[Rfam]
RNA sequence: CAGUGUUACAUCUCUUUUAGAAUUUGUCUAGCAGCUUUUCCAGUUUUCACCGGGCGGG
Numbered sequence: 001c002a003g004u005g006u007u008a009c010a011u012c013u014c015u016u017u018u019a020g021a022a023u024u025u026g027u028c029u030a031g032c033a034g035c036u037u038u039u040c041c042a043g044u045u046u047u048c049a050c051c052g053g054g055c056g057g058g
Stems, first nucleotide, its partner, number of pairs: 035058003039054003043050002
Shown here is a 58-nucleotide RNA sequence from Chlorocebus sabaeus, a member of the family "U7 small nuclear RNA".
Taxonomically the source falls in Chlorocebus (Eukaryota, Euarchontoglires, Haplorrhini, Cercopithecoidea).